Rfam assigns this 274-nucleotide RNA from Fictibacillus enclensis to the family "T-box leader".
It scores 99 bits against the family's covariance model.
Gene Ontology term of the family: tRNA binding.
Rfam describes the family as follows. Uncharged tRNA acts as the effector for transcription antitermination of genes in the T-box leader family.
RNA sequence: GAAAAGGCGAUGAUGAGAAAGAGUAGAAUCUCACCAUUUUUACACAGAGAGCUUCGGCAGCUGAAAAGAAGCACUAAUGAAGAUUCGAACAUGGUCUCAGAGCUCUGUCCUGAAUUCAGAACCUUGUGAGUAGGGAGCAGCGAGUGGUGGCACUUGUUAUCAAAACCACAGUAUAAGAGUGUUCUUUUUACUCACUCCGUACUUGCUGAGAUGACAGGCGCAAGCCUCUCAUGAAUAAAGGUGGUACCACGGGCAGACCGGCCCCGUCCUUAUC
Numbered sequence: 001g002a003a004a005a006g007g008c009g010a011u012g013a014u015g016a017g018a019a020a021g022a023g024u025a026g027a028a029u030c031u032c033a034c035c036a037u038u039u040u041u042a043c044a045c046a047g048a049g050a051g052c053u054u055c056g057g058c059a060g061c062u063g064a065a066a067a068g069a070a071g072c073a074c075u076a077a078u079g080a081a082g083a084u085u086c087g088a089a090c091a092u093g094g095u096c097u098c099a100g101a102g103c104u105c106u107g108u109c110c111u112g113a114a115u116u117c118a119g120a121a122c123c124u125u126g127u128g129a130g131u132a133g134g135g136a137g138c139a140g141c142g143a144g145u146g147g148u149g150g151c152a153c154u155u156g157u158u159a160u161c162a163a164a165a166c167c168a169c170a171g172u173a174u175a176a177g178a179g180u181g182u183u184c185u186u187u188u189u190a191c192u193c194a195c196u197c198c199g200u201a202c203u204u205g206c207u208g209a210g211a212u213g214a215c216a217g218g219c220g221c222a223a224g225c226c227u228c229u230c231a232u233g234a235a236u237a238a239a240g241g242u243g244g245u246a247c248c249a250c251g252g253g254c255a256g257a258c259c260g261g262c263c264c265c266g267u268c269c270u271u272a273u274c
Base pairs, nucleotide, nucleotide: 007103008102015098016097017096018095026086027085028084029083030082031081041073051072052071053070054069055068106139107138108136109135110134111133141156142155143154144153145152211232212231213230214229216227217226238271239270240269241268249267250266251265252264253263